[Rfam]
RNA: RNase MRP
RNA sequence: UGCUCGCUCAAACAAUCGCAUUCGAAGCAUACCAACAGAAGAUAUUAAUUAUUCUUCCACUAGAGAUAGUGACGUUUGCUUUGGGAGAAAGUCCCCGGACACACCUUUCUUAAAGGAACGCGGAAACGCGCCGCCAUAAAAGCUCAAGCGGCUCCUAUUUCACCUCAGUCGAUUAAAUCAUGUCCAUGCCACUUAUCGCUAACUUCACACUGAUUUGUUCAGAGGUCUUAUUGUGAAUGAUGGAAGGCGACAGCGGCGAUGAUAUGAGCCCGAACUUUCAAAGUGUAACGAUCAAGAUCUCUGAUCCGAGCCUUGUGGAAGAUAGGUGGCAUGAUGUGAUUUUAUUGAUGUUAAGGGGUGAGUAGGUUAUAUUCGUCGAGAUAAAUAGUCAUGCGAUUGCUUAUUUGCUACGAAAAUAGUAAUAUUAGUAACUUGAUGGGGCUUAUUAUUGAUGCGAGC
Number, nucleotide and partner (000 for none) at each position: 001u000002g459003c458004u457005c456006g455007c454008u452009c451010a450011a449012a000013c000014a398015a397016u396017c395018g394019c393020a000021u000022u085023c083024g082025a081026a080027g079028c078029a000030u000031a000032c000033c000034a000035a000036c000037a000038g057039a056040a055041g054042a053043u000044a000045u000046u000047a000048a000049u000050u000051a000052u000053u042054c041055u040056u039057c038058c000059a000060c000061u000062a000063g000064a000065g000066a000067u000068a000069g000070u000071g000072a000073c000074g000075u000076u000077u000078g028079c027080u026081u025082u024083g023084g000085g022086a000087g000088a000089a444090a443091g442092u000093c441094c440095c439096c438097g000098g000099a000100c000101a000102c000103a000104c000105c000106u000107u000108u000109c000110u000111u000112a000113a000114a000115g000116g000117a000118a000119c130120g129121c128122g127123g000124a000125a000126a000127c122128g121129c120130g119131c000132c000133g000134c000135c000136a000137u000138a000139a000140a000141a000142g000143c000144u000145c000146a000147a000148g000149c000150g000151g000152c000153u000154c000155c000156u000157a000158u000159u000160u000161c000162a000163c000164c000165u000166c000167a000168g000169u000170c000171g000172a000173u000174u000175a000176a000177a000178u000179c000180a000181u000182g000183u000184c000185c000186a000187u000188g000189c000190c000191a000192c000193u000194u000195a000196u000197c000198g000199c000200u000201a000202a000203c000204u000205u000206c000207a000208c000209a000210c000211u000212g000213a000214u000215u000216u000217g000218u000219u000220c000221a000222g000223a000224g000225g000226u000227c000228u000229u000230a000231u000232u000233g000234u000235g000236a000237a000238u000239g000240a000241u000242g000243g000244a000245a000246g000247g000248c000249g000250a000251c000252a000253g000254c000255g000256g000257c000258g000259a000260u000261g000262a000263u000264a000265u000266g000267a000268g000269c000270c000271c000272g000273a000274a000275c000276u000277u000278u000279c000280a000281a000282a000283g000284u000285g000286u000287a000288a000289c000290g000291a000292u000293c000294a000295a370296g000297a368298u000299c000300u000301c365302u364303g363304a000305u361306c360307c000308g000309a000310g000311c357312c356313u355314u000315g351316u350317g349318g000319a000320a000321g000322a000323u000324a000325g000326g000327u000328g000329g000330c000331a000332u000333g000334a000335u000336g345337u344338g343339a000340u000341u000342u000343u338344a337345u336346u000347g000348a000349u317350g316351u315352u000353a000354a000355g313356g312357g311358g000359u000360g306361a305362g000363u303364a302365g301366g000367u000368u297369a000370u295371a000372u000373u000374c000375g000376u000377c000378g000379a000380g000381a000382u000383a000384a000385a000386u000387a000388g000389u000390c000391a000392u000393g019394c018395g017396a016397u015398u014399g000400c428401u427402u000403a425404u424405u000406u000407g000408c000409u000410a000411c000412g000413a000414a000415a000416a000417u000418a000419g000420u000421a000422a000423u000424a404425u403426u000427a401428g400429u000430a000431a000432c000433u000434u000435g000436a000437u000438g096439g095440g094441g093442c091443u090444u089445a000446u000447u000448a000449u011450u010451g009452a008453u000454g007455c006456g005457a004458g003459c002